MIR2617 microRNA precursor family: an 87-nucleotide sequence from Medicago truncatula. The family's consensus secondary structure was predicted with RNAalifold. Rfam links the family to the GO terms RISC complex and miRNA-mediated post-transcriptional gene silencing.
RNA sequence: ACGUAGUAUGACAUGCCCAUUUGGUAUUAAACUCUGAUUUAUUAUUUAUUAUUUAAUUGCUUUGGGAUAAUGGGGUGUUACAGAAAG
Numbered sequence: 001a002c003g004u005a006g007u008a009u010g011a012c013a014u015g016c017c018c019a020u021u022u023g024g025u026a027u028u029a030a031a032c033u034c035u036g037a038u039u040u041a042u043u044a045u046u047u048a049u050u051a052u053u054u055a056a057u058u059g060c061u062u063u064g065g066g067a068u069a070a071u072g073g074g075g076u077g078u079u080a081c082a083g084a085a086a087g
Stems, first nucleotide, its partner, number of pairs: 002087001004085001007082001009080006016074006